[Rfam]
Notes: The record is a 116-nucleotide RNA from Musa balbisiana, which matches "Small nucleolar RNA Z278" in Rfam.
RNA sequence: GACUAUGAUGACAUAUCCACGUUAUGGAGGUGUAGAUGGGUCCAAGUCUCUGCUUUGCAGGGAGAACCUACUUGGAGCUGCUACAUUCAGAUGACAUUGCUGGAUUUGCCUGAGCC
Number, nucleotide and partner (000 for none) at each position: 001g116002a000003c114004u000005a000006u000007g000008a000009u000010g000011a000012c000013a000014u000015a000016u000017c000018c000019a000020c000021g000022u000023u000024a000025u000026g000027g000028a000029g000030g000031u000032g000033u000034a000035g000036a000037u000038g000039g000040g000041u000042c000043c000044a000045a000046g000047u000048c062049u061050c060051u059052g058053c000054u000055u000056u000057g000058c052059a051060g050061g049062g048063a000064g000065a000066a000067c000068c000069u000070a000071c000072u000073u000074g000075g000076a000077g000078c000079u000080g000081c000082u000083a000084c000085a000086u000087u000088c000089a000090g000091a000092u000093g000094a000095c000096a000097u000098u000099g000100c000101u000102g000103g000104a000105u000106u000107u000108g000109c000110c000111u000112g000113a000114g003115c000116c001

Background: NCBI's taxonomy places the organism under Eukaryota, Streptophyta, Spermatophyta, Zingiberales, Musa. Rfam describes the family as follows. snoZ278 is a C/D box small nucleolar RNA. Its methylation guide targets have not been reported. On this family, see Chen et al., Nucleic Acids Res 2003: "The high diversity of snoRNAs in plants: identification and comparative study of 120 snoRNA genes from Oryza sativa". By type it is a C/D-box small nucleolar RNA. Its family is annotated with RNA processing and nucleolus in the Gene Ontology.